The record is a 50-nucleotide RNA sequence from Thiomonas bhubaneswarensis, which matches "Xanthine riboswitch aptamer (NMT1 RNA)" in Rfam. Gene Ontology term of the family: purine nucleobase binding. NCBI's taxonomy places the organism under Bacteria, Pseudomonadati, Pseudomonadota, Burkholderiales, Thiomonas.

RNA sequence: UUUGAGAGUAGAAGCGGUCAGCGGCUUUGCUGCGGGACAUUGCUCCAUUG
Number, nucleotide and partner (000 for none) at each position: 001u000002u000003u000004g000005a000006g045007a044008g043009u042010a041011g000012a000013a000014g000015c035016g000017g000018u037019c036020a000021g033022c032023g031024g030025c029026u000027u000028u000029g025030c024031u023032g022033c021034g000035g015036g019037a018038c000039a000040u000041u010042g009043c008044u007045c006046c000047a000048u000049u000050g000
For this family Rfam cites "A bacterial riboswitch class senses xanthine and uric acid to regulate genes associated with purine oxidation" (Yu and Breaker, RNA, 2020). It scores 50 bits against the family's covariance model. The family's consensus secondary structure is taken from published work.